The family of this 116-nucleotide RNA from Lactobacillus sp. LL6 is "FMN riboswitch aptamer (RFN element)". The match comes from Rfam's covariance-model search (93 bits).
[Rfam]
RNA sequence: UGUUGUCUUCAGGGCAGGGUGAAAGUCCCGACCGGCGGUGGAAGUCCGCGACCCACUUAGGUGGCUGAAUCCGAGUAAGGAUACCGAUAGUAUAGUCUAGAUGGAAGAAGACAGGC
Numbered sequence: 001u002g003u004u005g006u007c008u009u010c011a012g013g014g015c016a017g018g019g020u021g022a023a024a025g026u027c028c029c030g031a032c033c034g035g036c037g038g039u040g041g042a043a044g045u046c047c048g049c050g051a052c053c054c055a056c057u058u059a060g061g062u063g064g065c066u067g068a069a070u071c072c073g074a075g076u077a078a079g080g081a082u083a084c085c086g087a088u089a090g091u092a093u094a095g096u097c098u099a100g101a102u103g104g105a106a107g108a109a110g111a112c113a114g115g116c
Base pairs, nucleotide, nucleotide: 003114004113005112006111007110008109009108010107017029018028019027031096032095033086034085035049036048037047038046044084045083053064054063069082070081071080072079088099089098090097